[Rfam]
RNA sequence: GGGAAUGUUUUCUAGGGUUCCGCGGCUGCUUUGCGGCCGGCCUGCGACCGAGAGAAAACGCGCGGCAUCGCCGCGUGCACGGAGGGACAAAAGCCCGGGAGGA
Numbered sequence: 001g002g003g004a005a006u007g008u009u010u011u012c013u014a015g016g017g018u019u020c021c022g023c024g025g026c027u028g029c030u031u032u033g034c035g036g037c038c039g040g041c042c043u044g045c046g047a048c049c050g051a052g053a054g055a056a057a058a059c060g061c062g063c064g065g066c067a068u069c070g071c072c073g074c075g076u077g078c079a080c081g082g083a084g085g086g087a088c089a090a091a092a093g094c095c096c097g098g099g100a101g102g103a
Stems, first nucleotide, its partner, number of pairs: 007059006015049002020046001021044001022042001023039006060076007078098001080101001084096003
Dot-bracket structure: ......((((((..((...(((((((((.....))))))..).).).))....))))))(((((((...))))))).(.[...(((.......))).)..]..
The family of this 103-nucleotide RNA sequence from Geobacillus kaustophilus is "Guanidine-I riboswitch aptamer". About the family: This family represents a conserved RNA structure found upstream of the ykkC and yxkD genes in Bacillus subtilis and related genes in other bacteria. The organism belongs to Geobacillus kaustophilus, within Bacteria. The base pairs follow the family's consensus structure.